[Rfam]
RNA sequence: CUGAGUCCAUGAUGAUGUCAAGUUAUCCCUGUCUGAAGGCAAAGAAAGGCCUUUCAGUGUGGAAUUUGAAUAUCUGAAACUCAG
Numbered sequence: 001c002u003g004a005g006u007c008c009a010u011g012a013u014g015a016u017g018u019c020a021a022g023u024u025a026u027c028c029c030u031g032u033c034u035g036a037a038g039g040c041a042a043a044g045a046a047a048g049g050c051c052u053u054u055c056a057g058u059g060u061g062g063a064a065u066u067u068g069a070a071u072a073u074c075u076g077a078a079a080c081u082c083a084g
Stems, first nucleotide, its partner, number of pairs: 001084006
Dot-bracket structure: ((((((........................................................................))))))
The record is an 84-nucleotide RNA from Rhinopithecus roxellana, which matches "Small nucleolar RNA R38" in Rfam. Rfam 15.1 lists 2,295 matches to the family in 1,305 species. It is annotated as a C/D-box small nucleolar RNA. For this family Rfam cites "Antisense snoRNAs: a family of nucleolar RNAs with long complementarities to rRNA" (Bachellerie et al., Trends Biochem Sci, 1995). Lineage of the source: Eukaryota > Metazoa > Boreoeutheria > Primates > Rhinopithecus. snoR38 is a C/D box small nucleolar RNA conserved across yeast, human, Arabidopsis and rice. It is encoded in the intron of elongation factor-1 gamma in both pombe and cerevisiae. snoR38 guides the methylation of 2'-O-ribose sites in 28S rRNA.